[Rfam]
Description: SAH (S-adenosyl-L-homocysteine) riboswitch aptamer: a 110-nucleotide RNA sequence from Pseudomonas kuykendallii. The match comes from Rfam's covariance-model search (53 bits).

Nucleotides: 110
Stems, first nucleotide, its partner, number of pairs: 002073002005070004021060004
Number, partner (000 for none) and nucleotide at each position: 001000c002073c003072g004000g005070g006069c007068g008067a009000g010000g011000g012000g013000c014000g015000c016000u017000g018000c019000a020000g021060c022059a023058g024057g025000c026000c027000g028000g029000g030000c031000c032000g033000c034000u035000u036000c037000g038000a039000u040000c041000g042000a043000u044000u045000c046000g047000a048000g049000g050000c051000a052000g053000c054000c055000c056000a057024c058023c059022u060021g061000u062000c063000a064000g065000g066000c067008u068007c069006g070005c071000a072003c073002g074000g075000g076000g077000c078000g079000u080000u081000u082000c083000c084000c085000a086000a087000a088000c089000g090000c091000a092000g093000c094000a095000a096000c097000g098000g099000c100000g101000c102000c103000c104000a105000u106000u107000c108000g109000c110000a